[Rfam]
RNA sequence: GUUUACCCAAUAGAUUUCAAGGUGUAGGAAGGCGGUGAGCGAGAGCAACCAACACACCUACAGCUUGAAAGAUGAAGGGUUGUUGCCGUGGAAACUUUUGGCCCAUCUCCGGAUGGGCUUUUUU
Numbered sequence: 001g002u003u004u005a006c007c008c009a010a011u012a013g014a015u016u017u018c019a020a021g022g023u024g025u026a027g028g029a030a031g032g033c034g035g036u037g038a039g040c041g042a043g044a045g046c047a048a049c050c051a052a053c054a055c056a057c058c059u060a061c062a063g064c065u066u067g068a069a070a071g072a073u074g075a076a077g078g079g080u081u082g083u084u085g086c087c088g089u090g091g092a093a094a095c096u097u098u099u100g101g102c103c104c105a106u107c108u109c110c111g112g113a114u115g116g117g118c119u120u121u122u123u124u
Base pairs, nucleotide, nucleotide: 001015002014003013004012005011034050035049036048039046040045055090056089057088058085060083061082062081063080064079065078066077100119101118102117103116104115105114106113107112
Rfam assigns this 124-nucleotide RNA from Yersinia mollaretii to the family "Yersinia sRNA 49". Lineage of the source: Bacteria > Pseudomonadati > Pseudomonadota > Yersinia > Yersinia mollaretii. By type it is a small RNA. The base pairs follow the family's consensus structure. The sRNA was identified by and is confirmed to have a stable secondary structure by using genome-wide structure probing at different temperatures. The function is unknown.